A member of the RNA family "SAM riboswitch aptamer (S box leader)" from Thermanaerosceptrum fracticalcis, 111 nucleotides long. From the family's description: The SAM riboswitch is found upstream of a number of genes which code for proteins involved in methionine or cysteine biosynthesis in Gram-positive bacteria. The family's consensus secondary structure is taken from published work. The match comes from Rfam's covariance-model search (92 bits).
[Rfam]
RNA sequence: CUCUUAUCCCGAGAGGUGGAGGGACUGGCCCGAUGAAACCCGGCAACCGUUUGGGCAUGCUCAAAUUGGUGCUAAUUCCUGCAGAAGUAAUCAACUUCUGAAAGAUAAGAG
Dot-bracket structure: ((((((((....(.(((...(((.[.[[)))......))))((((.((.((((........))))..))))))...(]].]((((((.......))))))..)))))))))
Numbered sequence: 001c002u003c004u005u006a007u008c009c010c011g012a013g014a015g016g017u018g019g020a021g022g023g024a025c026u027g028g029c030c031c032g033a034u035g036a037a038a039c040c041c042g043g044c045a046a047c048c049g050u051u052u053g054g055g056c057a058u059g060c061u062c063a064a065a066u067u068g069g070u071g072c073u074a075a076u077u078c079c080u081g082c083a084g085a086a087g088u089a090a091u092c093a094a095c096u097u098c099u100g101a102a103a104g105a106u107a108a109g110a111g
Stems, first nucleotide, its partner, number of pairs: 001111008013041001015040003021031003025081001027079002042073004047069002050065004077103001082100006